The record is a 63-nucleotide RNA sequence from Anabaena sp. 90, which matches "Nitrogen stress-induced RNA 1" in Rfam.

RNA sequence: AAGUAGAUGCACCCUGAUAACUAAACUCCCCUAGCUGGCUAACUUCCACUGGGGGUUUUUUCU
Numbered sequence: 001a002a003g004u005a006g007a008u009g010c011a012c013c014c015u016g017a018u019a020a021c022u023a024a025a026c027u028c029c030c031c032u033a034g035c036u037g038g039c040u041a042a043c044u045u046c047c048a049c050u051g052g053g054g055g056u057u058u059u060u061u062c063u
Stems, first nucleotide, its partner, number of pairs: 003012002028055007037046002